[Rfam]
Nucleotides: 405
Base pairs, nucleotide, nucleotide: 001401002400003399004398005397006396007395008394009393010392011390012341013340014339015338016337017336018335020047021046022045023044024043025042026041052388053387054386056385057384058383059382060381061223062222063221064220068277069276070275071274073219074218075217076216077215078092079091080090081089082088093107094105095104096103097102108214109213113212114211115208116207117206130153131152132149133148134147135146136145137144138143161179162178163177164176165175166174181203182201183200184199185198186197187196188195189194227298228297229296230295257289258288259287260286261285262284269281270280271279272278305325306324307323308322309321310319311318312317
Number, partner (000 for none) and nucleotide at each position: 001401u002400g003399a004398g005397u006396u007395g008394g009393c010392u011390g012341g013340g014339c015338g016337g017336c018335c019000g020047c021046a022045g023044g024043u025042c026041c027000u028000a029000c030000c031000g032000g033000u034000u035000c036000c037000c038000g039000g040000u041026g042025g043024a044023c045022u046021u047020g048000a049000g050000g051000a052388a053387a054386g055000u056385c057384c058383g059382g060381a061223c062222u063221u064220c065000a066000c067000a068277g069276a070275g071274c072000a073219g074218g075217g076216u077215g078092a079091u080090u081089g082088c083000u084000a085000a086000c087000g088082g089081c090080a091079a092078u093107c094105c095104g096103a097102g098000g099000u100000g101000a102097c103096u104095c105094g106000c107093g108214g109213g110000a111000a112000a113212g114211u115208g116207c117206c118000a119000c120000a121000g122000a123000a124000a125000a126000c127000a128000g129000a130153c131152c132149g133148c134147c135146a136145c137144c138143g139000g140000u141000a142000a143138c144137g145136g146135u147134g148133g149132u150000a151000a152131g153130g154000g155000u156000g157000a158000a159000a160000c161179g162178g163177u164176g165175c166174g167000g168000u169000a170000a171000g172000a173000g174166c175165g176164c177163a178162c179161c180000a181203g182201c183200a184199u185198u186197c187196c188195g189194g190000g191000u192000g193000a194189c195188c196187g197186g198185a199184a200183u201182g202000g203181c204000u205000a206117g207116g208115c209000a210000a211114a212113c213109c214108c215077c216076a217075c218074c219073c220064g221063a222062a223061g224000c225000a226000a227298g228297g229296c230295c231000a232000a233000g234000a235000a236000g237000a238000c239000c240000g241000c242000a243000c244000c245000u246000g247000g248000u249000g250000u251000g252000g253000u254000c255000g256000c257289g258288c259287a260286g261285g262284c263000g264000c265000c266000c267000g268000a269281g270280g271279g272278u273000u274071g275070c276069u277068c278272g279271c280270c281269c282000g283000a284262g285261c286260c287259u288258g289257c290000g291000g292000g293000u294000a295230g296229g297228c298227c299000g300000c301000u302000c303000g304000a305325g306324g307323c308322a309321c310319c311318c312317g313000g314000c315000a316000a317312c318311g319310g320000u321309g322308u323307g324306u325305c326000c327000a328000g329000a330000u331000g332000g333000a334000u335018g336017g337016u338015c339014g340013c341012c342000g343000c344000c345000u346000c347000g348000c349000c350000g351000c352000c353000g354000u355000u356000u357000a358000a359000c360000a361000g362000a363000c364000g365000g366000c367000g368000g369000c370000g371000a372000g373000g374000g375000a376000c377000a378000g379000a380000a381060u382059c383058c384057g385056g386054c387053u388052u389000a390011c391000a392010g393009g394008c395007c396006a397005a398004c399003u400002c401001a402000u403000c404000c405000g

The family of this 405-nucleotide RNA sequence from Mycobacterium sp. ACS1612 is "Bacterial RNase P class A". It scores 303 bits against the family's covariance model. It is annotated as a ribozyme.